The family of this 67-nucleotide RNA sequence from Domibacillus mangrovi is "Bacillaceae-1 RNA". Pairs were carried over by alignment from the consensus structure, which is taken from published work. The match comes from Rfam's covariance-model search (74 bits).
RNA sequence: GGAAGCGGAACGCAGACUAAGAUCGUCACGUCCUGUUACAACGUCUGCAUGAUUCACAUCCUGUGAA
Numbered sequence: 001g002g003a004a005g006c007g008g009a010a011c012g013c014a015g016a017c018u019a020a021g022a023u024c025g026u027c028a029c030g031u032c033c034u035g036u037u038a039c040a041a042c043g044u045c046u047g048c049a050u051g052a053u054u055c056a057c058a059u060c061c062u063g064u065g066a067a
Stems, first nucleotide, its partner, number of pairs: 012048006025039002028036002053067005